[Rfam]
RNA: Ribosomal protein L20 leader
RNA sequence: UAAUCAAAGCAGAAGCGUCCGCUUCUCACCUGAUUCGACGCCUCUACAGGUUGUUGACAGGUCAAUGAAAUGAGUUCUUACUUACGAGGACUAUUAAUGCGGACGCCUAUGGUGUCUGCAUUUUUGCUUUGUU
Dot-bracket structure: ..........((((((....)))))).(((......(((((........)).)))....)))...................................((((((((((...)))))))))).............